[Rfam]
Shown here is a 171-nucleotide sequence from Thermoanaerobacteraceae bacterium SP2, a member of the family "Group II catalytic intron D1-D4-3". Rfam describes the family as follows. Group II introns are found in rRNA, tRNA and mRNA of organelles in fungi, plants and protists, and also in mRNA in bacteria. A search with the family's covariance model found it, with a score of 140 bits.
RNA sequence: UCUAUCGUGAGGUAGAAUCUGAAGGAAGCUGUAGGCAAGCCACGGCCUGAGGAACACGAACCGCAUACAAGGCUAUACAGUUCGGAUGAGUUUGCAUCACAAAACGAAAUCCAGCGCUGCCAAGGGACUGUGUAGUAAAUGCGGCAGGUAUACGGGGCGAAGGCUAUCGCU
Number, nucleotide and partner (000 for none) at each position: 001u016002c015003u014004a013005u012006c011007g000008u000009g000010a000011g006012g005013u004014a003015g002016a001017a000018u000019c000020u000021g000022a000023a000024g000025g000026a000027a000028g171029c000030u169031g168032u000033a000034g000035g164036c163037a000038a000039g158040c157041c156042a000043c154044g153045g149046c148047c147048u146049g145050a000051g000052g000053a000054a000055c000056a000057c000058g000059a000060a000061c144062c143063g142064c141065a140066u139067a000068c000069a000070a000071g000072g136073c135074u134075a000076u132077a131078c130079a129080g128081u127082u126083c000084g112085g111086a110087u109088g000089a000090g105091u104092u103093u102094g000095c000096a000097u000098c000099a000100c000101a000102a093103a092104a091105c090106g000107a000108a000109a087110u086111c085112c084113a000114g000115c000116g000117c000118u000119g000120c000121c000122a000123a000124g000125g000126g082127a081128c080129u079130g078131u077132g076133u000134a074135g073136u072137a000138a000139a066140u065141g064142c063143g062144g061145c049146a048147g047148g046149u045150a000151u000152a000153c044154g043155g000156g041157g040158c039159g000160a000161a000162g000163g036164c035165u000166a000167u000168c031169g030170c000171u028